[Rfam]
RNA sequence: UUGGUCCAACUUGCCUUAGAAUAGGGGAGCUUAACUUGUGUUUUUAAUGUUUAAGUUAAAAGCCACUGUUCUAAGACAAUUUGAUGAUCA
Numbered sequence: 001u002u003g004g005u006c007c008a009a010c011u012u013g014c015c016u017u018a019g020a021a022u023a024g025g026g027g028a029g030c031u032u033a034a035c036u037u038g039u040g041u042u043u044u045u046a047a048u049g050u051u052u053a054a055g056u057u058a059a060a061a062g063c064c065a066c067u068g069u070u071c072u073a074a075g076a077c078a079a080u081u082u083g084a085u086g087a088u089c090a
Base pairs, nucleotide, nucleotide: 002090003089004088005087006086007083008082009081011079012078013077015075016074017073018072019071020070021069022068023067024066026064027063031059032058033057034056035055036054037053038052